[Rfam]
This 302-nucleotide RNA from alpha proteobacterium HIMB114 belongs to the Rfam family "Alphaproteobacteria transfer-messenger RNA". Bacterial tmRNA, also known as 10Sa RNA or SsrA, is named for its dual tRNA and mRNA-like properties. Its role is to liberate the mRNA from a stalled ribosome. To accomplish this part of the tmRNA is used as a reading frame that ends in a translation stop signal. The broken mRNA is replaced in the ribosome by the tmRNA and translation of the tmRNA leads to addition of a proteolysis tag to the incomplete protein enabling recognition by a protease. It scores 239 bits against the family's covariance model. The source organism's lineage runs through Bacteria, Pseudomonadati, Pseudomonadota, Candidatus Pelagibacterales and Candidatus Pelagibacteraceae.
RNA sequence: UUUCUUUAAAUUUAGAAUCUAUCACUUAUAUUAAUUUGUGUUGGUUUUCCAACUAUGGUGAUAAACGAAAUUCGUAAUAAACAUUUCGGACCAGGGGGCGGUACCCUGCACCUCCACCAAAUACAACUCAUGGGGGUGAAAUAGGAUCGACGGGUGUCUAAAGGCUUUUCUUUUACUCGGUAUUGUUCCGCCGUAACGGGCUAAUUUAUAAAUGCUAACGAAAGUUACGCUAUUGCUGCUUAAUUAACUUCGGUUAAUUAAUUAGCAGGGGUCCGGGGCACCUUGCAACAGAACGCCCCUUU
Numbered sequence: 001u002u003u004c005u006u007u008a009a010a011u012u013u014a015g016a017a018u019c020u021a022u023c024a025c026u027u028a029u030a031u032u033a034a035u036u037u038g039u040g041u042u043g044g045u046u047u048u049c050c051a052a053c054u055a056u057g058g059u060g061a062u063a064a065a066c067g068a069a070a071u072u073c074g075u076a077a078u079a080a081a082c083a084u085u086u087c088g089g090a091c092c093a094g095g096g097g098g099c100g101g102u103a104c105c106c107u108g109c110a111c112c113u114c115c116a117c118c119a120a121a122u123a124c125a126a127c128u129c130a131u132g133g134g135g136g137u138g139a140a141a142u143a144g145g146a147u148c149g150a151c152g153g154g155u156g157u158c159u160a161a162a163g164g165c166u167u168u169u170c171u172u173u174u175a176c177u178c179g180g181u182a183u184u185g186u187u188c189c190g191c192c193g194u195a196a197c198g199g200g201c202u203a204a205u206u207u208a209u210a211a212a213u214g215c216u217a218a219c220g221a222a223a224g225u226u227a228c229g230c231u232a233u234u235g236c237u238g239c240u241u242a243a244u245u246a247a248c249u250u251c252g253g254u255u256a257a258u259u260a261a262u263u264a265g266c267a268g269g270g271g272u273c274c275g276g277g278g279c280a281c282c283u284u285g286c287a288a289c290a291g292a293a294c295g296c297c298c299c300u301u302u
Base pairs, nucleotide, nucleotide: 040053041052042051043050044049057177058176059175060174061173067170068169069168070167073164082156083155084154086153087152088151092108093107094106095105096104109138110137111136112135113134114133115132178193179192180191181190183203185201187200188199189198268283269282270281275298276297277296